[Rfam]
RNA sequence: AUGAUGGGAGGCGACUGGCGUAGGUGGGUUGACCACCGGGAAGCUGAACUAGGACGCAUCGACCGCCUGGGUGCUCCUC
Numbered sequence: 001a002u003g004a005u006g007g008g009a010g011g012c013g014a015c016u017g018g019c020g021u022a023g024g025u026g027g028g029u030u031g032a033c034c035a036c037c038g039g040g041a042a043g044c045u046g047a048a049c050u051a052g053g054a055c056g057c058a059u060c061g062a063c064c065g066c067c068u069g070g071g072u073g074c075u076c077c078u079c
Stems, first nucleotide, its partner, number of pairs: 005046001010045003015040002017067004024036004056074005